[Rfam]
RNA sequence: UGUCUCCUCCAACUCUCCUCAAAAAGAAUUGGAUUUCAAGCCCACUCCCGAGUGGGCUUUUUUUU
Numbered sequence: 001u002g003u004c005u006c007c008u009c010c011a012a013c014u015c016u017c018c019u020c021a022a023a024a025a026g027a028a029u030u031g032g033a034u035u036u037c038a039a040g041c042c043c044a045c046u047c048c049c050g051a052g053u054g055g056g057c058u059u060u061u062u063u064u065u
Stems, first nucleotide, its partner, number of pairs: 008033005014027002039058008
The record is a 65-nucleotide RNA from Massilia sp. CF038, which matches "Betaproteobacteria toxic small RNA" in Rfam. A reference for the family is Kimelman et al. (2012), "A vast collection of microbial genes that are toxic to bacteria", Genome Res. The family's consensus secondary structure was predicted with WAR. Rfam describes the family as follows. Overexpression in amino aid rich medium attenuates growth, suggesting role in repressing amino acid intake and metabolism. The match comes from Rfam's covariance-model search (60 bits).